[Rfam]
RNA sequence: GCAGUCCGCCUCAUGGACGAACCGACCACGCGUCGAGGUGUCCGGCUACGCUGACGGAGUGCGCCUUCCCCAAGAAGGACGCAAAGCCGACAGCCGUCGCAUCCCUGGGAGAUCAUCCAUG
Numbered sequence: 001g002c003a004g005u006c007c008g009c010c011u012c013a014u015g016g017a018c019g020a021a022c023c024g025a026c027c028a029c030g031c032g033u034c035g036a037g038g039u040g041u042c043c044g045g046c047u048a049c050g051c052u053g054a055c056g057g058a059g060u061g062c063g064c065c066u067u068c069c070c071c072a073a074g075a076a077g078g079a080c081g082c083a084a085a086g087c088c089g090a091c092a093g094c095c096g097u098c099g100c101a102u103c104c105c106u107g108g109g110a111g112a113u114c115a116u117c118c119a120u121g
Stems, first nucleotide, its partner, number of pairs: 060083004065077004086100002089098003

The family of this 121-nucleotide RNA sequence from Streptomyces globisporus is "Streptomyces-metH RNA".
The base pairs follow the family's consensus structure, which is taken from published work.